[Rfam]
RNA sequence: ACGCAGGAAAGGAGGUGGUCCACGAAAUGAUUUCUUCGAGGACUUGCGAGGUGGCUGCUCGCUAGGAGCGCCCCAGCGGGACAAGCAGUCUCCUGGCGAAUCUCCAGCAGACACCGGGUCCCCGGACCGCCGUCCAGUCCUGACGGCACCCGCCCCAACGGCGGAAGGUCCGGGGAUCUCCCCUU
Number, nucleotide and partner (000 for none) at each position: 001a000002c000003g000004c000005a000006g000007g000008a000009a000010a000011g000012g000013a000014g059015g058016u057017g056018g055019u054020c000021c000022a000023c000024g000025a000026a000027a000028u000029g000030a000031u000032u000033u000034c000035u000036u000037c000038g000039a000040g000041g000042a000043c000044u000045u000046g000047c000048g000049a000050g000051g000052u000053g000054g019055c018056u017057g016058c015059u014060c098061g097062c096063u095064a094065g093066g092067a000068g000069c000070g089071c088072c000073c000074c000075a000076g000077c000078g000079g000080g000081a000082c000083a000084a000085g000086c000087a000088g071089u070090c000091u000092c066093c065094u064095g063096g062097c061098g060099a000100a000101u000102c000103u000104c000105c000106a000107g000108c000109a000110g000111a000112c000113a000114c000115c000116g179117g178118g177119u176120c175121c174122c173123c172124g171125g170126a169127c168128c167129g147130c146131c145132g144133u143134c142135c000136a000137g000138u000139c000140c000141u000142g134143a133144c132145g131146g130147c129148a000149c000150c000151c000152g000153c000154c000155c000156c000157a000158a000159c000160g000161g000162c000163g000164g000165a000166a000167g128168g127169u126170c125171c124172g123173g122174g121175g120176a119177u118178c117179u116180c000181c000182c000183c000184u000185u000
Shown here is a 185-nucleotide RNA sequence from Actinocorallia herbida, a member of the family "Actinobacteria sRNA Ms_IGR-5".
It is annotated as a small RNA.
The pairing is the family consensus, mapped onto this sequence.
A search with the family's covariance model found it, with a score of 113 bits.
Taxonomically the source falls in Actinocorallia (Bacteria, Actinomycetota, Actinomycetes, Thermomonosporaceae).